[Rfam]
RNA sequence: AUGCCGUCUGAAGAUUCGUUGUCGCAGCUUUCGCACAGGGGGACCCGUUCUCUCUCUUUCGGCUGUGGGGAAAGUCCCCGGAGACCACAGAGCAUAUCCUCAUCCAAUUAACGGAAAGCGACCGCCUCUAAGCACGACGGUACUGGAUCAAGGAUGGCAGGGAUCACUUUGUUCUUUCUGGUUUCGCUCCCAGAGAAGCAUCUACCUCGUCACUCUGUCGCCUACAUUCUGAAGACUGCAUUCGGCCAAGUCAUCAAAUGGCGCGAAGAUAUGAGCGUAUUUGGUGUUCGAAUGACCGGUUGGAAGAUGGGCAAUCUUGUUGCUCAUAGAUAUAGUUAUGCGAUUGUCGACCUGGUUGGCUUGUCAGCCGGUCUUCAACUCAAUGGGGCUCACUAUCAUUCGGCA
Numbered sequence: 001a002u003g004c005c006g007u008c009u010g011a012a013g014a015u016u017c018g019u020u021g022u023c024g025c026a027g028c029u030u031u032c033g034c035a036c037a038g039g040g041g042g043a044c045c046c047g048u049u050c051u052c053u054c055u056c057u058u059u060c061g062g063c064u065g066u067g068g069g070g071a072a073a074g075u076c077c078c079c080g081g082a083g084a085c086c087a088c089a090g091a092g093c094a095u096a097u098c099c100u101c102a103u104c105c106a107a108u109u110a111a112c113g114g115a116a117a118g119c120g121a122c123c124g125c126c127u128c129u130a131a132g133c134a135c136g137a138c139g140g141u142a143c144u145g146g147a148u149c150a151a152g153g154a155u156g157g158c159a160g161g162g163a164u165c166a167c168u169u170u171g172u173u174c175u176u177u178c179u180g181g182u183u184u185c186g187c188u189c190c191c192a193g194a195g196a197a198g199c200a201u202c203u204a205c206c207u208c209g210u211c212a213c214u215c216u217g218u219c220g221c222c223u224a225c226a227u228u229c230u231g232a233a234g235a236c237u238g239c240a241u242u243c244g245g246c247c248a249a250g251u252c253a254u255c256a257a258a259u260g261g262c263g264c265g266a267a268g269a270u271a272u273g274a275g276c277g278u279a280u281u282u283g284g285u286g287u288u289c290g291a292a293u294g295a296c297c298g299g300u301u302g303g304a305a306g307a308u309g310g311g312c313a314a315u316c317u318u319g320u321u322g323c324u325c326a327u328a329g330a331u332a333u334a335g336u337u338a339u340g341c342g343a344u345u346g347u348c349g350a351c352c353u354g355g356u357u358g359g360c361u362u363g364u365c366a367g368c369c370g371g372u373c374u375u376c377a378a379c380u381c382a383a384u385g386g387g388g389c390u391c392a393c394u395a396u397c398a399u400u401c402g403g404c405a
Base pairs, nucleotide, nucleotide: 002405003404004403005402006401009398010397011396014345016343017342018341019340022068023067024066025065026064027063028062039053040052041051042050043049073390074389076388077387078386079385089129090128091127092126131144132143134141135140240293241292242291243290244289245288250285251284252283261278262277263276264275349373350372351371352370